[Rfam]
RNA sequence: UUGUCAAUGUUGUUUGCCACCUCGAUAAAAAGAUGUUGAGGAUAAAUUGGGUUAAUUGCAAGAAACUUUAAAGUAUAUAUAAUAUAUACUAUGACAACUUGCAGCGAAGUAUUACUUAUAUAAUAAAAGAGAGUAAUAAACGUUCAACGACUAGAAAGUGAGUAAUAUAACAAUAAUCUUUCCAAGAAUGCCCAAAAAAGUAAAUUUAAAUAAAUUACUUUUAAGACAUAGUCUGAACAAUAAUGAAAAUUAUUG
Numbered sequence: 001u002u003g004u005c006a007a008u009g010u011u012g013u014u015u016g017c018c019a020c021c022u023c024g025a026u027a028a029a030a031a032g033a034u035g036u037u038g039a040g041g042a043u044a045a046a047u048u049g050g051g052u053u054a055a056u057u058g059c060a061a062g063a064a065a066c067u068u069u070a071a072a073g074u075a076u077a078u079a080u081a082a083u084a085u086a087u088a089c090u091a092u093g094a095c096a097a098c099u100u101g102c103a104g105c106g107a108a109g110u111a112u113u114a115c116u117u118a119u120a121u122a123a124u125a126a127a128a129g130a131g132a133g134u135a136a137u138a139a140a141c142g143u144u145c146a147a148c149g150a151c152u153a154g155a156a157a158g159u160g161a162g163u164a165a166u167a168u169a170a171c172a173a174u175a176a177u178c179u180u181u182c183c184a185a186g187a188a189u190g191c192c193c194a195a196a197a198a199a200g201u202a203a204a205u206u207u208a209a210a211u212a213a214a215u216u217a218c219u220u221u222u223a224a225g226a227c228a229u230a231g232u233c234u235g236a237a238c239a240a241u242a243a244u245g246a247a248a249a250u251u252a253u254u255g
Base pairs, nucleotide, nucleotide: 002019003018005016006015007014047195048194049193050192052190057103058102059101060100061099062098067094068093071090104143105142112135117131119129147234149233150232151231152230153229198220199219200218201217202216203215205213206212240253241252242251243250244249
RNA: Group I catalytic intron
Organism: Pichia californica